[Rfam]
RNA: Transposase-2 RNA
Nucleotides: 067
Stems, first nucleotide, its partner, number of pairs: 011040005019028003044063005050057002
Number, partner (000 for none) and nucleotide at each position: 001000g002000a003000a004000a005000c006000g007000u008000c009000a010000a011040c012039c013038c014037g015036g016000c017000a018000c019028g020027g021026c022000a023000u024000c025000c026021g027020c028019c029000a030000c031000u032000c033000a034000g035000a036015c037014c038013g039012g040011g041000a042000c043000c044063g045062u046061c047060c048059c049000a050057c051056c052000g053000c054000a055000a056051g057050g058000c059048g060047g061046g062045a063044c064000u065000g066000c067000u